[Rfam]
RNA sequence: CGGCAUCCCCAUUACCUAUGGACACGGUGCCGAAAGCUUCCGGCCGAUCGGUUCAGGAAUGCUUGUAUUCAGGGUUUUCCGUGUCCAC
Number, nucleotide and partner (000 for none) at each position: 001c032002g031003g030004c029005a028006u027007c026008c000009c021010c020011a019012u018013u000014a000015c000016c000017u000018a012019u011020g010021g009022a000023c000024a000025c000026g007027g006028u005029g004030c003031c002032g001033a000034a064035a063036g062037c061038u059039u000040c057041c056042g054043g053044c000045c051046g000047a000048u000049c000050g000051g045052u000053u043054c042055a000056g041057g040058a000059a038060u000061g037062c036063u035064u034065g000066u000067a000068u000069u000070c000071a000072g000073g000074g000075u000076u000077u000078u000079c000080c000081g000082u000083g000084u000085c000086c000087a000088c000

The record is an 88-nucleotide RNA from Chlorobium phaeobacteroides, which matches "SAM-Chlorobi RNA" in Rfam.
Rfam's curators put it in the seed alignment.
NCBI's taxonomy places the organism under Bacteria, Pseudomonadati, Chlorobiota, Chlorobiales, Chlorobium phaeobacteroides.
By type it is a cis-regulatory element.